[Rfam]
RNA sequence: CUUGCAGCAGUCUCUAACUUGCCUGGUGCAGGUUGGGAUCUGUUUUGCCAGUGUAUCUUAUCUAUGUUUCUGCUGGUGAGUUAGGUCCUGUGUUGCACCAAGCAAGUCGGAAACUGCAGUGCAU
Numbered sequence: 001c002u003u004g005c006a007g008c009a010g011u012c013u014c015u016a017a018c019u020u021g022c023c024u025g026g027u028g029c030a031g032g033u034u035g036g037g038a039u040c041u042g043u044u045u046u047g048c049c050a051g052u053g054u055a056u057c058u059u060a061u062c063u064a065u066g067u068u069u070c071u072g073c074u075g076g077u078g079a080g081u082u083a084g085g086u087c088c089u090g091u092g093u094u095g096c097a098c099c100a101a102g103c104a105a106g107u108c109g110g111a112a113a114c115u116g117c118a119g120u121g122c123a124u
Base pairs, nucleotide, nucleotide: 013111014110017107018106019105020104024100025099026098027097028096029095030094031093034090035089036088037087038086040084041083